This 87-nucleotide sequence from Delftia acidovorans belongs to the Rfam family "sRNA-Xcc1". Pairs were carried over by alignment from the consensus structure, which was predicted with RNAalifold. NCBI's taxonomy places the organism under Bacteria, Pseudomonadati, Burkholderiales, Comamonadaceae, Delftia acidovorans.
RNA sequence: GCCGGGAGGGCGACGGAUACAACACCCCGCAAGGGGAAAGAAGUCCGCCUAGCGUAUCCUAGGUUUCUAGCCUCCCGGCCGCCUUGU
Numbered sequence: 001g002c003c004g005g006g007a008g009g010g011c012g013a014c015g016g017a018u019a020c021a022a023c024a025c026c027c028c029g030c031a032a033g034g035g036g037a038a039a040g041a042a043g044u045c046c047g048c049c050u051a052g053c054g055u056a057u058c059c060u061a062g063g064u065u066u067c068u069a070g071c072c073u074c075c076c077g078g079c080c081g082c083c084u085u086g087u
Base pairs, nucleotide, nucleotide: 001079002078003077004076005075006074007073008072009071012045013044014043025035026034027033047064048063049062050061051060052059